A member of the RNA family "mir-320 microRNA precursor family" from Macaca mulatta, 75 nucleotides long.
RNA sequence: GGCAUGGCAGGCCUUCUCUUUCCAGUUCUUCCCAGAAUUGGGAAAAGCUGGGUUGACAGGGUAAAAAAAAGAAAA
Numbered sequence: 001g002g003c004a005u006g007g008c009a010g011g012c013c014u015u016c017u018c019u020u021u022c023c024a025g026u027u028c029u030u031c032c033c034a035g036a037a038u039u040g041g042g043a044a045a046a047g048c049u050g051g052g053u054u055g056a057c058a059g060g061g062u063a064a065a066a067a068a069a070a071g072a073a074a075a
Base pairs, nucleotide, nucleotide: 014059015058017056018055021052022051023050024049025048029044030043031042032041033040034039
Record summary:
Lineage of the source: Eukaryota > Opisthokonta > Dipnotetrapodomorpha > Tetrapoda > Macaca. Gene Ontology terms of the family: long-term synaptic potentiation, positive regulation of stem cell proliferation and cellular response to glucose stimulus. The family's consensus secondary structure was predicted with RNAalifold. The sequence is in the family's curated seed alignment.